[Rfam]
Rfam assigns this 117-nucleotide RNA from Peribacillus cavernae to the family "BsrF".
It scores 96 bits against the family's covariance model.
Pairs were carried over by alignment from the consensus structure, which was predicted with WAR.
RNA sequence: GCGAUGAGCUAAUUUGUGUAAGCCGAAGGACAAGCUUGAACGCUAAACGUUUGGAUGUGGCCAAACGGUUUUUCGCCUCAAAACGCAUCAAAGACGCCUGGCAAUAUGCCAAGCGUC
Numbered sequence: 001g002c003g004a005u006g007a008g009c010u011a012a013u014u015u016g017u018g019u020a021a022g023c024c025g026a027a028g029g030a031c032a033a034g035c036u037u038g039a040a041c042g043c044u045a046a047a048c049g050u051u052u053g054g055a056u057g058u059g060g061c062c063a064a065a066c067g068g069u070u071u072u073u074c075g076c077c078u079c080a081a082a083a084c085g086c087a088u089c090a091a092a093g094a095c096g097c098c099u100g101g102c103a104a105u106a107u108g109c110c111a112a113g114c115g116u117c
Stems, first nucleotide, its partner, number of pairs: 014081003018077001024075008034043002048067002051064003093117005099111003